[Rfam]
RNA sequence: AGCAGUUAAGGGCAAACCUAUUGAAAAAUAGGGACGCAAAGUCACAGGUCUAAGGUUUUACAACUAGGAUGGCUGGACUGCCUGA
Numbered sequence: 001a002g003c004a005g006u007u008a009a010g011g012g013c014a015a016a017c018c019u020a021u022u023g024a025a026a027a028a029u030a031g032g033g034a035c036g037c038a039a040a041g042u043c044a045c046a047g048g049u050c051u052a053a054g055g056u057u058u059u060a061c062a063a064c065u066a067g068g069a070u071g072g073c074u075g076g077a078c079u080g081c082c083u084g085a
Stems, first nucleotide, its partner, number of pairs: 012037002017032006040079004045075003048070003055064003